[Rfam]
RNA sequence: AGAGGUUCACCAGGUUGAGGCCAUAGCAGAAGUGCUCAUGGUGCAGCCUGUUAGAUUCCAUUUAAAUCUGUGAAUUCUGCU
Numbered sequence: 001a002g003a004g005g006u007u008c009a010c011c012a013g014g015u016u017g018a019g020g021c022c023a024u025a026g027c028a029g030a031a032g033u034g035c036u037c038a039u040g041g042u043g044c045a046g047c048c049u050g051u052u053a054g055a056u057u058c059c060a061u062u063u064a065a066a067u068c069u070g071u072g073a074a075u076u077c078u079g080c081u
Stems, first nucleotide, its partner, number of pairs: 019048003025081007032044003052070006
Dot-bracket structure: ..................[[[...((((((((((.......))).]]]...((((((.......))))))....)))))))
RNA: Mammalian CPEB3 ribozyme
Organism: Alligator sinensis